Shown here is a 91-nucleotide RNA sequence from Saccharopolyspora rhizosphaerae, a member of the family "Selenocysteine transfer RNA". The base pairs follow the family's consensus structure, which is taken from published work. A search with the family's covariance model found it, with a score of 78 bits. NCBI's taxonomy places the organism under Bacteria, Bacillati, Actinomycetota, Pseudonocardiaceae, Saccharopolyspora. Gene Ontology term of the family: triplet codon-amino acid adaptor activity.
[Rfam]
RNA sequence: GGAGACGUCUGGGGUCUGGUGGCCCCCACGGCCUUCAAAGCCGAUGGCGCCGGGCAACUCGGCGCGGCGGGUUCGAUUCCCGUCCGUCUCC
Numbered sequence: 001g002g003a004g005a006c007g008u009c010u011g012g013g014g015u016c017u018g019g020u021g022g023c024c025c026c027c028a029c030g031g032c033c034u035u036c037a038a039a040g041c042c043g044a045u046g047g048c049g050c051c052g053g054g055c056a057a058c059u060c061g062g063c064g065c066g067g068c069g070g071g072u073u074c075g076a077u078u079c080c081c082g083u084c085c086g087u088c089u090c091c
Base pairs, nucleotide, nucleotide: 001091002090003089004088005087006086007085011026012025013024014023015022016021029043030042031041032040047065048064049063050062051061068082069081070080071079